RNA sequence: CGCACCGACCCGCUCAAUCGUGCGAGUCACGAACCGGGGACCCACAUGCACCACCUGGGGUGAAUCUCCGGGCCACGGCCCGGGGUAGGGCGAUCUUCCCGCCCGAAUCCGUCAGCUAACCCGGUCGGCGGCAGCGGAAGGAGUU
Numbered sequence: 001c002g003c004a005c006c007g008a009c010c011c012g013c014u015c016a017a018u019c020g021u022g023c024g025a026g027u028c029a030c031g032a033a034c035c036g037g038g039g040a041c042c043c044a045c046a047u048g049c050a051c052c053a054c055c056u057g058g059g060g061u062g063a064a065u066c067u068c069c070g071g072g073c074c075a076c077g078g079c080c081c082g083g084g085g086u087a088g089g090g091c092g093a094u095c096u097u098c099c100c101g102c103c104c105g106a107a108u109c110c111g112u113c114a115g116c117u118a119a120c121c122c123g124g125u126c127g128g129c130g131g132c133a134g135c136g137g138a139a140g141g142a143g144u145u
Stems, first nucleotide, its partner, number of pairs: 011130004018032003033125006043057002058110003066085006088104004
This 145-nucleotide RNA sequence from Micromonospora wenchangensis belongs to the Rfam family "c-di-AMP riboswitch aptamer (ydaO/yuaA leader)".
Lineage of the source: Bacteria > Bacillati > Actinomycetota > Micromonosporaceae > Micromonospora.
It scores 84 bits against the family's covariance model.